A member of the RNA family "RAGATH-18 RNA", 71 nucleotides long. From the family's description: Actinobacteria, Firmicutes, Fusobacteria, Thermotogae (1 example).
RNA sequence: CACGUGGACUGUUACAUCAAACCGUAGUAGACACUCUUACAGUUUCGAGACGGGACAGGAAGAAACGUGAA
Number, nucleotide and partner (000 for none) at each position: 001c069002a068003c067004g066005u065006g000007g000008a000009c058010u057011g056012u055013u054014a000015c000016a000017u000018c000019a000020a000021a000022c053023c052024g051025u000026a000027g000028u000029a000030g046031a045032c000033a000034c042035u041036c000037u000038u000039a000040c000041a035042g034043u000044u000045u031046c030047g000048a000049g000050a000051c024052g023053g022054g013055a012056c011057a010058g009059g000060a000061a000062g000063a000064a000065a005066c004067g003068u002069g001070a000071a000
Annotation
Rfam's curators put it in the seed alignment. The family's consensus secondary structure is taken from published work.